[Rfam]
RNA: Bacterial large subunit ribosomal RNA, nucleotides 9 to 571
RNA sequence: GAAACAGAGUACGAGGUGGAUGCCUUGGCGCUGAAGACCGAUGAAGGACGCGGAGACCGGCGAAACGUUCAGGGGGAGCUGCAUCCAAGCGAUGAGCCCUGAGAUUCCGAAUGGGGCAACCCCUCCAGAGUGAUGUCUGGAGACCUAUCGCUGAACACAUAGGCGAUAUGGAGGAUCGUGGGUGAACUGAAACAUCUCAGUAGCCUGCGUAAGAGAAAUCAACCGAGAUUCCCGUAGUAGUGGCGAGCGAACCGGGAAGAGCCCAAACCAUCUAUUCCUCGUGAAUAGGCGGGGUUGUAGGACUUCUAUCAGCAGACGUUUUCUUACUCGAAGGCAUUGGAACGUGCCACCAGAGGGGGUGAGAGUCCCGUAGAGGACGAGAGAACGACUGUGAGAAGUAUCCUGAGUACCACGAGACACGUGCAAUCUUGUGGGAAGCUGGGGGGACCACCCUCCAAGGCUAAAGAACUUCAGCGACCGAUAGCGAACAAGUACCGUGAGGGAAAGGUGAAAAGUACCCCGAGAGGGGGAUGAAAGAGUCCCUGAAACCACGUACUCACAAG
Numbered sequence: 001g002a003a004a005c006a007g008a009g010u011a012c013g014a015g016g017u018g019g020a021u022g023c024c025u026u027g028g029c030g031c032u033g034a035a036g037a038c039c040g041a042u043g044a045a046g047g048a049c050g051c052g053g054a055g056a057c058c059g060g061c062g063a064a065a066c067g068u069u070c071a072g073g074g075g076g077a078g079c080u081g082c083a084u085c086c087a088a089g090c091g092a093u094g095a096g097c098c099c100u101g102a103g104a105u106u107c108c109g110a111a112u113g114g115g116g117c118a119a120c121c122c123c124u125c126c127a128g129a130g131u132g133a134u135g136u137c138u139g140g141a142g143a144c145c146u147a148u149c150g151c152u153g154a155a156c157a158c159a160u161a162g163g164c165g166a167u168a169u170g171g172a173g174g175a176u177c178g179u180g181g182g183u184g185a186a187c188u189g190a191a192a193c194a195u196c197u198c199a200g201u202a203g204c205c206u207g208c209g210u211a212a213g214a215g216a217a218a219u220c221a222a223c224c225g226a227g228a229u230u231c232c233c234g235u236a237g238u239a240g241u242g243g244c245g246a247g248c249g250a251a252c253c254g255g256g257a258a259g260a261g262c263c264c265a266a267a268c269c270a271u272c273u274a275u276u277c278c279u280c281g282u283g284a285a286u287a288g289g290c291g292g293g294g295u296u297g298u299a300g301g302a303c304u305u306c307u308a309u310c311a312g313c314a315g316a317c318g319u320u321u322u323c324u325u326a327c328u329c330g331a332a333g334g335c336a337u338u339g340g341a342a343c344g345u346g347c348c349a350c351c352a353g354a355g356g357g358g359g360u361g362a363g364a365g366u367c368c369c370g371u372a373g374a375g376g377a378c379g380a381g382a383g384a385a386c387g388a389c390u391g392u393g394a395g396a397a398g399u400a401u402c403c404u405g406a407g408u409a410c411c412a413c414g415a416g417a418c419a420c421g422u423g424c425a426a427u428c429u430u431g432u433g434g435g436a437a438g439c440u441g442g443g444g445g446g447a448c449c450a451c452c453c454u455c456c457a458a459g460g461c462u463a464a465a466g467a468a469c470u471u472c473a474g475c476g477a478c479c480g481a482u483a484g485c486g487a488a489c490a491a492g493u494a495c496c497g498u499g500a501g502g503g504a505a506a507g508g509u510g511a512a513a514a515g516u517a518c519c520c521c522g523a524g525a526g527g528g529g530g531a532u533g534a535a536a537g538a539g540u541c542c543c544u545g546a547a548a549c550c551a552c553g554u555a556c557u558c559a560c561a562a563g
Stems, first nucleotide, its partner, number of pairs: 007558007015550002022543001023508002027479002029476008038174002046108003049062003069102006078090003113122003123142007144171002146168007179207005189196002219226002229465001230257005240248002260462004268292002271289004299404003303398005313391003317387009327375003333348005351355001357369003410434008441456005495502002518529004